RNA sequence: CUAGCUGCUUGGCUUUGAGAACUGAAUUCCAUAGGCUUUAAAAUAAUGAAAACGGCCUGUGGCUUCAGUUCUGUAGCUGGGUAGCAAAUA
Numbered sequence: 001c002u003a004g005c006u007g008c009u010u011g012g013c014u015u016u017g018a019g020a021a022c023u024g025a026a027u028u029c030c031a032u033a034g035g036c037u038u039u040a041a042a043a044u045a046a047u048g049a050a051a052a053c054g055g056c057c058u059g060u061g062g063c064u065u066c067a068g069u070u071c072u073g074u075a076g077c078u079g080g081g082u083a084g085c086a087a088a089u090a
Stems, first nucleotide, its partner, number of pairs: 008081002011078003018072008034056001036054001
RNA: mir-146 microRNA precursor family